[Rfam]
RNA sequence: UACUGGCCGAUCUGGAUGUCCUCGUUAGUCAUAGAUGCUUUUUGCGAGUCGUAUGACUAGAGACACAUUCAGCUUGGCCACGAU
Number, nucleotide and partner (000 for none) at each position: 001u000002a000003c000004u000005g079006g078007c077008c076009g075010a000011u000012c072013u071014g070015g069016a068017u067018g066019u065020c000021c000022u063023c062024g000025u000026u000027a058028g057029u056030c055031a054032u053033a052034g000035a000036u000037g000038c000039u000040u000041u000042u000043u000044g000045c000046g000047a000048g000049u000050c000051g000052u033053a032054u031055g030056a029057c028058u027059a000060g000061a000062g023063a022064c000065a019066c018067a017068u016069u015070c014071a013072g012073c000074u000075u009076g008077g007078c006079c005080a000081c000082g000083a000084u000
Shown here is an 84-nucleotide RNA sequence, a member of the family "mir-44 microRNA precursor family". It scores 80 bits against the family's covariance model. Rfam 15.1 lists 66 matches to the family in 44 species.